[Rfam]
Nucleotides: 338
Base pairs, nucleotide, nucleotide: 001334002333003332004331005330006329007328008327009326010325011323012303013302014301015300016299017298018297020039021038023036024035025034026033027032044321045320046319048318049317050316051315052314053211054210055209056208060238061237062236063235065207066206067205068204069203070084071083072082073081074080085099086097087096088095089094100202101201105200106199107196108195122141123140124137125136126135127134128133149167150166151165152164153163154162169191170189171188172187173186174185175184176183177182215260216259217258218257224251225250226249227248228247229243230242231241232240233239267286268285269284270283271282272281273280274279
Number, partner (000 for none) and nucleotide at each position: 001334u002333g003332a004331g005330c006329u007328g008327g009326c010325c011323g012303g013302g014301u015300g016299g017298c018297c019000g020039c021038g022000u023036c024035g025034g026033g027032g028000g029000g030000a031000a032027c033026c034025c035024c036023g037000c038021c039020g040000a041000g042000g043000a044321a045320c046319g047000u048318c049317c050316g051315g052314g053211c054210u055209c056208c057000a058000c059000a060238g061237a062236g063235c064000a065207g066206g067205g068204u069203g070084g071083u072082g073081g074080g075000u076000a077000a078000c079000g080074c081073c082072c083071a084070c085099c086097c087096g088095g089094g090000g091000u092000g093000a094089c095088c096087c097086g098000c099085g100202g101201g102000c103000a104000c105200g106199u107196g108195c109000a110000a111000c112000a113000g114000a115000a116000a117000g118000c119000a120000g121000a122141c123140c124137g125136c126135c127134u128133c129000c130000u131000u132000g133128g134127a135126g136125g137124u138000a139000a140123g141122g142000g143000u144000g145000a146000a147000a148000c149167g150166g151165u152164g153163g154162u155000g156000u157000a158000a159000g160000a161000g162154a163153c164152c165151a166150c167149c168000a169191g170189c171188a172187c173186u174185g175184u176183c177182g178000g179000u180000g181000a182177c183176g184175g185174c186173g187172g188171u189170g190000g191169c192000u193000a194000g195108g196107u197000a198000a199106a200105c201101c202100c203069c204068a205067c206066c207065c208056g209055g210054a211053g212000c213000a214000a215260g216259a217258c218257c219000a220000g221000a222000c223000a224251g225250c226249a227248g228247g229243u230242g231241a232240g233239u234000u235063g236062c237061u238060c239233g240232c241231u242230c243229a244000c245000u246000a247228c248227c249226u250225g251224c252000g253000g254000g255000u256000a257218g258217g259216u260215u261000g262000c263000u264000a265000g266000a267286u268285c269284g270283c271282u272281g273280c274279g275000g276000c277000a278000a279274c280273g281272c282271a283270g284269c285268g286267g287000c288000g289000a290000g291000a292000u293000g294000g295000a296000u297018g298017g299016c300015c301014a302013u303012c304000c305000a306000c307000g308000a309000c310000a311000g312000a313000a314052c315051c316050c317049g318048g319046c320045g321044u322000a323011u324000a325010g326009g327008c328007c329006a330005g331004c332003u333002c334001a335000u336000u337000c338000g
Source information: Shown here is a 338-nucleotide RNA from Ruaniaceae bacterium KH17, a member of the family "Bacterial RNase P class A". It is annotated as a ribozyme. The source organism's lineage runs through Bacteria, Bacillati, Actinomycetota, Actinomycetes and Ruaniaceae.